Bacterial RNase P class B: a 396-nucleotide RNA from Neobacillus mesonae. Rfam classes the family as a ribozyme. Lineage of the source: Bacteria > Bacillota > Bacilli > Caryophanales > Neobacillus. From the family's description: Ribonuclease P (RNase P) is a ubiquitous endoribonuclease, found in archaea, bacteria and eukarya as well as chloroplasts and mitochondria. Its best characterised activity is the generation of mature 5'-ends of tRNAs by cleaving the 5'-leader elements of precursor-tRNAs. Cellular RNase Ps are ribonucleoproteins. RNA from bacterial RNase Ps retains its catalytic activity in the absence of the protein subunit, i.e. it is a ribozyme.
RNA sequence: ACGUUCGGGUAAUCGCUGCAAUUUGCUUUAGGCGAAUUGUUGAGGAAAGUCCAUGCUCGCACGAAGCUGAGAUGCUCGUAGUGUUCGCGCCUAGCGAAUUCAUAAGCUAGGGCAGCCGGCGUCUGCCGGUUGACGGCUGGGAAAAUACCUAAGUCCUUUUGGAUAUGGUAUGAGUACCUAUAAAAGUGCCACAGUGACGUAGUCUUUCCAGAAAUGGAAAGGGUGGAACGGGUAAACCCCGCGAGCGAGAAACCCAAAUUAUGGUAGGGGCAUCUUCCCAGAGGAAUUGAACAAAGGGAAGGACAGAUGGUUUCCAUCUGUAGAUAGAUGAUUACCGCCUUUGUACGAGACAUUUUGUCGUUUGGAGUACGGAGGAACAGAACAUGGCUUACAGAA
Numbered sequence: 001a002c003g004u005u006c007g008g009g010u011a012a013u014c015g016c017u018g019c020a021a022u023u024u025g026c027u028u029u030a031g032g033c034g035a036a037u038u039g040u041u042g043a044g045g046a047a048a049g050u051c052c053a054u055g056c057u058c059g060c061a062c063g064a065a066g067c068u069g070a071g072a073u074g075c076u077c078g079u080a081g082u083g084u085u086c087g088c089g090c091c092u093a094g095c096g097a098a099u100u101c102a103u104a105a106g107c108u109a110g111g112g113c114a115g116c117c118g119g120c121g122u123c124u125g126c127c128g129g130u131u132g133a134c135g136g137c138u139g140g141g142a143a144a145a146u147a148c149c150u151a152a153g154u155c156c157u158u159u160u161g162g163a164u165a166u167g168g169u170a171u172g173a174g175u176a177c178c179u180a181u182a183a184a185a186g187u188g189c190c191a192c193a194g195u196g197a198c199g200u201a202g203u204c205u206u207u208c209c210a211g212a213a214a215u216g217g218a219a220a221g222g223g224u225g226g227a228a229c230g231g232g233u234a235a236a237c238c239c240c241g242c243g244a245g246c247g248a249g250a251a252a253c254c255c256a257a258a259u260u261a262u263g264g265u266a267g268g269g270g271c272a273u274c275u276u277c278c279c280a281g282a283g284g285a286a287u288u289g290a291a292c293a294a295a296g297g298g299a300a301g302g303a304c305a306g307a308u309g310g311u312u313u314c315c316a317u318c319u320g321u322a323g324a325u326a327g328a329u330g331a332u333u334a335c336c337g338c339c340u341u342u343g344u345a346c347g348a349g350a351c352a353u354u355u356u357g358u359c360g361u362u363u364g365g366a367g368u369a370c371g372g373a374g375g376a377a378c379a380g381a382a383c384a385u386g387g388c389u390u391a392c393a394g395a396a
Base pairs, nucleotide, nucleotide: 004396005395006394007392008336009335010334011333012332013331014330016042018040019039020038021037022036023035024034047390048389049388051387052386053385054384055383056249057248058247059246060245061079062078063077064076066075067074085244086243087242088241089240090111091110092109093108094107095106112134113132114131115130116129117128118127119126120125135239136238138180139179140178141177146170147169148168149167153164154163155162186237187236188233189232190231203222204221205220206219207218208217209216210215253269254268255267273302274301275300276299277298278297279296303321304320305319306318307317308316309315310314338375339374340373341372342371343370344369345368346367